The family of this 94-nucleotide sequence from Papio anubis is "Small nucleolar RNA SNORD116". It scores 50 bits against the family's covariance model.

[Rfam]
RNA sequence: AGAUUGAUAAUGUCACCCCCAUAAAACCACUCCUUAGGAAAUCUGAACAAACUGAGUGAAAACUUACUAGUUGUUCUCAUUGAGGCUGGACCCC
Numbered sequence: 001a002g003a004u005u006g007a008u009a010a011u012g013u014c015a016c017c018c019c020c021a022u023a024a025a026a027c028c029a030c031u032c033c034u035u036a037g038g039a040a041a042u043c044u045g046a047a048c049a050a051a052c053u054g055a056g057u058g059a060a061a062a063c064u065u066a067c068u069a070g071u072u073g074u075u076c077u078c079a080u081u082g083a084g085g086c087u088g089g090a091c092c093c094c
Stems, first nucleotide, its partner, number of pairs: 002093001005090001028058005034050002037048001
The source organism's lineage runs through Eukaryota, Euteleostomi, Dipnotetrapodomorpha, Cercopithecinae and Papio. Rfam classes the family as a C/D-box small nucleolar RNA. The base pairs follow the family's consensus structure, which was predicted with PFOLD. Rfam 15.1 lists 3,260 matches to the family in 170 species. Rfam links the family to the GO terms nucleolus and RNA processing.